Overview: A member of the RNA family "Eukaryotic large subunit ribosomal RNA" from Trichinella pseudospiralis, 462 nucleotides of a longer RNA. NCBI's taxonomy places the organism under Eukaryota, Metazoa, Bilateria, Ecdysozoa, Trichinella.
[Rfam]
RNA sequence: GAGUUCAGUAGGCACGCGAGUCGUUGACGUUGUGCAUUGAACAGUCGAAGGCGUAAUGAAAGUAAGAAAAAAGUGAACGGUGCUUUUUUUGGGUGCCGUUUGCUUUUCAACAUGAUCGUCCUGUUGUGUUUUGUUUGGGUGUGUUGCUUGAUUGUUUUGUAACUUGCGCCGCCCUUCUUAAUAUUUUGGACGCGCAGUGUUGUGCCGUUGAACAGUCGAAGGCGUAAUGAAAGUAAGAAAAAAGUGAACGGUGCUUUUUUUGGGUGCCGUUUGCUUUUCAACAUGAUCGUCCUGUUGUGUUUUGUUUGGGUGUGUUGCUUGAUUGUUUUGUAACUUGCGCCGCCCUUCUUAAUAUUUUGGACGCGCAGUGUUGUGCCGUUGAACAGUCGCACUGUUUCUCCAUCUCUCACGGGUUGGAGAAACAAUUGUCGAUCAGUCGGUUUCGGAGCGUGCACACUGGUA
Numbered sequence: 001g002a003g004u005u006c007a008g009u010a011g012g013c014a015c016g017c018g019a020g021u022c023g024u025u026g027a028c029g030u031u032g033u034g035c036a037u038u039g040a041a042c043a044g045u046c047g048a049a050g051g052c053g054u055a056a057u058g059a060a061a062g063u064a065a066g067a068a069a070a071a072a073g074u075g076a077a078c079g080g081u082g083c084u085u086u087u088u089u090u091g092g093g094u095g096c097c098g099u100u101u102g103c104u105u106u107u108c109a110a111c112a113u114g115a116u117c118g119u120c121c122u123g124u125u126g127u128g129u130u131u132u133g134u135u136u137g138g139g140u141g142u143g144u145u146g147c148u149u150g151a152u153u154g155u156u157u158u159g160u161a162a163c164u165u166g167c168g169c170c171g172c173c174c175u176u177c178u179u180a181a182u183a184u185u186u187u188g189g190a191c192g193c194g195c196a197g198u199g200u201u202g203u204g205c206c207g208u209u210g211a212a213c214a215g216u217c218g219a220a221g222g223c224g225u226a227a228u229g230a231a232a233g234u235a236a237g238a239a240a241a242a243a244g245u246g247a248a249c250g251g252u253g254c255u256u257u258u259u260u261u262g263g264g265u266g267c268c269g270u271u272u273g274c275u276u277u278u279c280a281a282c283a284u285g286a287u288c289g290u291c292c293u294g295u296u297g298u299g300u301u302u303u304g305u306u307u308g309g310g311u312g313u314g315u316u317g318c319u320u321g322a323u324u325g326u327u328u329u330g331u332a333a334c335u336u337g338c339g340c341c342g343c344c345c346u347u348c349u350u351a352a353u354a355u356u357u358u359g360g361a362c363g364c365g366c367a368g369u370g371u372u373g374u375g376c377c378g379u380u381g382a383a384c385a386g387u388c389g390c391a392c393u394g395u396u397u398c399u400c401c402a403u404c405u406c407u408c409a410c411g412g413g414u415u416g417g418a419g420a421a422a423c424a425a426u427u428g429u430c431g432a433u434c435a436g437u438c439g440g441u442u443u444c445g446g447a448g449c450g451u452g453c454a455c456a457c458u459g460g461u462a
Stems, first nucleotide, its partner, number of pairs: 005460005012453006020052003025047004056063002109372005117363005375442001376440003379436003386429001